[Rfam]
RNA: DUF3800-I RNA
RNA sequence: UUAUACUACCAAAAGGAUAAGUCCUUUGUUCGGUCGAUAGUUGGAUACUGAUUUUUAGUAAAUUAAGCGUAUGGAAAGUACGUCAGCCCAACUGGGGAGGAGCUACUUUAGUAGCUCCUUUUCUUUGUCUA
Numbered sequence: 001u002u003a004u005a006c007u008a009c010c011a012a013a014a015g016g017a018u019a020a021g022u023c024c025u026u027u028g029u030u031c032g033g034u035c036g037a038u039a040g041u042u043g044g045a046u047a048c049u050g051a052u053u054u055u056u057a058g059u060a061a062a063u064u065a066a067g068c069g070u071a072u073g074g075a076a077a078g079u080a081c082g083u084c085a086g087c088c089c090a091a092c093u094g095g096g097g098a099g100g101a102g103c104u105a106c107u108u109u110a111g112u113a114g115c116u117c118c119u120u121u122u123c124u125u126u127g128u129c130u131a
Base pairs, nucleotide, nucleotide: 008034009033010032011029012027013026014025015024016023017022038094039093040092041091042090043089048086049085050084051063052062053061067083068082069081070080071079072078096121097120098119099118100117101116102115103114104113105112
Dot-bracket structure: .......((((((((((....)))))).)..)))...((((((....((((((.......)))...((((((.....)))))))))..)))))).((((((((((......))))))))))..........